RNA: c-di-AMP riboswitch aptamer (ydaO/yuaA leader)
RNA sequence: CGCGCAAACUCACCCGACCAUGGCAGGAGCGGGGGACCCACAGGUACAACCGCCUGUUCCGGUCUCCGGAACAGGCUUGGGGUCAAGUCGCGUCCCCACGCGACCGGGCAUCUCCAGCCCGCACCCGACAGCUCACCUCGUAGGCGCCGGAGAGGAAUU
Numbered sequence: 001c002g003c004g005c006a007a008a009c010u011c012a013c014c015c016g017a018c019c020a021u022g023g024c025a026g027g028a029g030c031g032g033g034g035g036a037c038c039c040a041c042a043g044g045u046a047c048a049a050c051c052g053c054c055u056g057u058u059c060c061g062g063u064c065u066c067c068g069g070a071a072c073a074g075g076c077u078u079g080g081g082g083u084c085a086a087g088u089c090g091c092g093u094c095c096c097c098a099c100g101c102g103a104c105c106g107g108g109c110a111u112c113u114c115c116a117g118c119c120c121g122c123a124c125c126c127g128a129c130a131g132c133u134c135a136c137c138u139c140g141u142a143g144g145c146g147c148c149g150g151a152g153a154g155g156a157a158u159u
Stems, first nucleotide, its partner, number of pairs: 001146003009027002029141006039079002080126003088103004106120004